[Rfam]
RNA sequence: CCAGGGGCUCACGCCCCUGGCUAAUGACGGCGUCCCUUUGGGACU
Numbered sequence: 001c002c003a004g005g006g007g008c009u010c011a012c013g014c015c016c017c018u019g020g021c022u023a024a025u026g027a028c029g030g031c032g033u034c035c036c037u038u039u040g041g042g043a044c045u
Base pairs, nucleotide, nucleotide: 001020002019003018004017005016006015007014008013032044033043034042035041036040